[Rfam]
A member of the RNA family "Mammalian CPEB3 ribozyme" from Alligator mississippiensis, 76 nucleotides long. The source organism's lineage runs through Eukaryota, Eumetazoa, Deuterostomia, Gnathostomata and Alligator. Rfam links the family to the GO term RNA nuclease activity. It scores 44 bits against the family's covariance model. The family's consensus secondary structure is taken from published work.

RNA sequence: GUUGCAUGUUCAAGCCCAAAGCAGAAGCACUCACCAUGCAGCCCUGUCAGAUUCCAACAAAUCUGCAAAUUCUGCU
Numbered sequence: 001g002u003u004g005c006a007u008g009u010u011c012a013a014g015c016c017c018a019a020a021g022c023a024g025a026a027g028c029a030c031u032c033a034c035c036a037u038g039c040a041g042c043c044c045u046g047u048c049a050g051a052u053u054c055c056a057a058c059a060a061a062u063c064u065g066c067a068a069a070u071u072c073u074g075c076u
Stems, first nucleotide, its partner, number of pairs: 016041001020076007027039003048065006